RNA sequence: CUGGACGCCAGAGGUUGGGUCCAGCGUGAGGCGGACGCCGGGGGUGUCCGGCGCCCGCUCAUACCCAUCUUGCUCAUUGGAGGAUUUGGCUAUGAAGA
Number, nucleotide and partner (000 for none) at each position: 001c024002u023003g022004g021005a020006c019007g000008c018009c017010a000011g000012a000013g000014g000015u000016u000017g009018g008019g006020u005021c004022c003023a002024g001025c000026g000027u000028g000029a000030g000031g000032c057033g056034g055035a000036c053037g052038c051039c050040g049041g048042g000043g000044g000045u000046g000047u000048c041049c040050g039051g038052c037053g036054c000055c034056c033057g032058c000059u095060c094061a093062u092063a091064c000065c089066c088067a087068u000069c000070u084071u083072g000073c082074u081075c080076a000077u000078u000079g000080g075081a074082g073083g071084a070085u000086u000087u067088g066089g065090c000091u063092a062093u061094g060095a059096a000097g000098a000
RNA: Repression of heat shock gene expression (ROSE) element